The family of this 76-nucleotide sequence from Bacillus aquiflavi is "Group II catalytic intron D1-D4-1". It scores 66 bits against the family's covariance model. The family has 237 seed sequences and 2,508 matches in Rfam 15.1. The organism belongs to Bacillus, within Bacteria.
RNA sequence: CAAUGGUAUUAGUGAUAAUCCAAUGAAUUGUGAGGAGUCAGCAGACGCCAUAGUAGUUUCUAAGGAAAUGAAGGGC
Numbered sequence: 001c002a003a004u005g006g007u008a009u010u011a012g013u014g015a016u017a018a019u020c021c022a023a024u025g026a027a028u029u030g031u032g033a034g035g036a037g038u039c040a041g042c043a044g045a046c047g048c049c050a051u052a053g054u055a056g057u058u059u060c061u062a063a064g065g066a067a068a069u070g071a072a073g074g075g076c
Base pairs, nucleotide, nucleotide: 001025002024004023006021008019009018010017011016037046038045039044047076048075049074056069057068058067059066060065
Dot-bracket structure: ((.(.(.((((....)))).).)))...........(((....)))(((......(((((....)))))....)))